[Rfam]
RNA: small nucleolar RNA snoR126
RNA sequence: UGGCUGUGAUGACAAGAUUAUACUUUUCUCGAAUCUGAGACUUGAUUUAUUCAAGGACCAAGUUUUGAUGAGCUAUCUGCAUGUCUGAGCCAG
Numbered sequence: 001u002g003g004c005u006g007u008g009a010u011g012a013c014a015a016g017a018u019u020a021u022a023c024u025u026u027u028c029u030c031g032a033a034u035c036u037g038a039g040a041c042u043u044g045a046u047u048u049a050u051u052c053a054a055g056g057a058c059c060a061a062g063u064u065u066u067g068a069u070g071a072g073c074u075a076u077c078u079g080c081a082u083g084u085c086u087g088a089g090c091c092a093g
Base pairs, nucleotide, nucleotide: 001092002091003090004089